[Rfam]
RNA sequence: GGAGCGGGCCGGACGGCCGCUGGCCGCGGCCUCGCGCCGCGACUGGAGGAAGGUCCGGACUCCGCAGGGCAGGGUGCUGGCUAACGGCCAGGCGCAGCAAGCCGAAAGGCCCAGGGCGACGGAAAGUGGAACAGAAAGCAUACCGCCCAAGCGGCAGCCGGUUCGCCGGCUGCCGACGGCAAGGGUGAAACGGCGAGGUAAGAGCUCACCGCGGUCGUGGCGACACGACCGGCACGCCAAACCCCACCCGGAGCAACAUCGAAUAGGCAUGCGCGGCGCCUCCGGGCGCCACAGGACGGCCCGUCCGAGCAUGCGGGUAGAUGGCUCGAGCGGCCGGGCAACCGGUCGCCCAGACGAAUGGUCGUCACGCCGGGCUUCGGUCCGGCGAACAGAAUCCGGCCUACAGGCCCGCUCCCCCC
Numbered sequence: 001g002g003a004g005c006g007g008g009c010c011g012g013a014c015g016g017c018c019g020c021u022g023g024c025c026g027c028g029g030c031c032u033c034g035c036g037c038c039g040c041g042a043c044u045g046g047a048g049g050a051a052g053g054u055c056c057g058g059a060c061u062c063c064g065c066a067g068g069g070c071a072g073g074g075u076g077c078u079g080g081c082u083a084a085c086g087g088c089c090a091g092g093c094g095c096a097g098c099a100a101g102c103c104g105a106a107a108g109g110c111c112c113a114g115g116g117c118g119a120c121g122g123a124a125a126g127u128g129g130a131a132c133a134g135a136a137a138g139c140a141u142a143c144c145g146c147c148c149a150a151g152c153g154g155c156a157g158c159c160g161g162u163u164c165g166c167c168g169g170c171u172g173c174c175g176a177c178g179g180c181a182a183g184g185g186u187g188a189a190a191c192g193g194c195g196a197g198g199u200a201a202g203a204g205c206u207c208a209c210c211g212c213g214g215u216c217g218u219g220g221c222g223a224c225a226c227g228a229c230c231g232g233c234a235c236g237c238c239a240a241a242c243c244c245c246a247c248c249c250g251g252a253g254c255a256a257c258a259u260c261g262a263a264u265a266g267g268c269a270u271g272c273g274c275g276g277c278g279c280c281u282c283c284g285g286g287c288g289c290c291a292c293a294g295g296a297c298g299g300c301c302c303g304u305c306c307g308a309g310c311a312u313g314c315g316g317g318u319a320g321a322u323g324g325c326u327c328g329a330g331c332g333g334c335c336g337g338g339c340a341a342c343c344g345g346u347c348g349c350c351c352a353g354a355c356g357a358a359u360g361g362u363c364g365u366c367a368c369g370c371c372g373g374g375c376u377u378c379g380g381u382c383c384g385g386c387g388a389a390c391a392g393a394a395u396c397c398g399g400c401c402u403a404c405a406g407g408c409c410c411g412c413u414c415c416c417c418c419c
Base pairs, nucleotide, nucleotide: 001415002414003413004412005411006410007409008408009407010406011404012366013365014364015363016362017361018360020046021045022044023043025041026040027039028038051402052401053400055399056398057397058396059395060253061252062251063250067302068301069300070299072249073248074247075246076245077091078090079089080088081087092120093118094117095116121244122243126242127241128238129237143184144183145180146179147178152175153174154173155172156171157170158169159168160167161166192210193209195207196206197205211233212231213230214229215228216227217226218225219224257323258322259321260320267314268313269312270311271310272309294306295305296304297303330349331348332347333346334345335344336343337342
The family of this 419-nucleotide RNA from Zeimonas arvi is "Bacterial RNase P class A". On this family, see Beauregard et al., RNA Biol 2013: "Identification and characterization of small RNAs in Yersinia pestis". The match comes from Rfam's covariance-model search (244 bits). The family's RNA type in Rfam is ribozyme. Taxonomically the source falls in Zeimonas (Bacteria, Pseudomonadati, Pseudomonadota, Burkholderiaceae).